[Rfam]
RNA sequence: ACAGGAAAGUGGCAAACUGCUGGAAACGGUAGAACGCAAAGCUAAGAGCCUAAUCUUAAGAAUGGUAGCCUAGCCACUAAG
Numbered sequence: 001a002c003a004g005g006a007a008a009g010u011g012g013c014a015a016a017c018u019g020c021u022g023g024a025a026a027c028g029g030u031a032g033a034a035c036g037c038a039a040a041g042c043u044a045a046g047a048g049c050c051u052a053a054u055c056u057u058a059a060g061a062a063u064g065g066u067a068g069c070c071u072a073g074c075c076a077c078u079a080a081g
Stems, first nucleotide, its partner, number of pairs: 012037002017032006041074003045071002048066003055060001
Rfam assigns this 81-nucleotide sequence from Alkaliphilus peptidifermentans to the family "c-di-GMP-I riboswitch aptamer". A search with the family's covariance model found it, with a score of 58 bits. Pairs were carried over by alignment from the consensus structure, which is taken from published work. Lineage of the source: Bacteria > Bacillati > Clostridia > Natronincolaceae > Alkaliphilus peptidifermentans. From the family's description: GEMM was predicted in a large-scale screen for bacterial structured RNA regulatory elements.